Burkholderia RNA 7 (anti-hemB): an 84-nucleotide sequence from Zoogloea ramigera. For this family Rfam cites "Identification of 22 candidate structured RNAs in bacteria using the CMfinder comparative genomics pipeline" (Weinberg et al., Nucleic Acids Res, 2007). Rfam 15.1 lists 479 matches to the family in 458 species. Rfam's curators write: This RNA motif was identified by computational search in b-proteobacteria Burkholderia. By type it is a small RNA.
RNA sequence: UCUCCCGCGAUACCUCCCUGAGCGGGGCCUUGAGCAAGCAAGGCAUUUUGGCCCCCGGCAUCCCCUCGCCGGGGGCUUUUUAUU
Numbered sequence: 001u002c003u004c005c006c007g008c009g010a011u012a013c014c015u016c017c018c019u020g021a022g023c024g025g026g027g028c029c030u031u032g033a034g035c036a037a038g039c040a041a042g043g044c045a046u047u048u049u050g051g052c053c054c055c056c057g058g059c060a061u062c063c064c065c066u067c068g069c070c071g072g073g074g075g076c077u078u079u080u081u082a083u084u
Stems, first nucleotide, its partner, number of pairs: 004026005027044006051076008